The family of this 75-nucleotide sequence from Heliconius melpomene is "mir-2755 microRNA precursor family".
[Rfam]
RNA sequence: UUGGUAGAACAAGGUGGCCUAGCAGCGUGUUUUCCUCUAAGUUUUGCACCCUGUCAGACCAUACUUGUUCUAACG
Numbered sequence: 001u002u003g004g005u006a007g008a009a010c011a012a013g014g015u016g017g018c019c020u021a022g023c024a025g026c027g028u029g030u031u032u033u034c035c036u037c038u039a040a041g042u043u044u045u046g047c048a049c050c051c052u053g054u055c056a057g058a059c060c061a062u063a064c065u066u067g068u069u070c071u072a073a074c075g
Stems, first nucleotide, its partner, number of pairs: 005072009014062004019057002022054004027049004
Gene Ontology terms of the family: miRNA-mediated post-transcriptional gene silencing and RISC complex. Pairs were carried over by alignment from the consensus structure, which was predicted with RNAalifold. The organism belongs to Heliconius, within Eukaryota.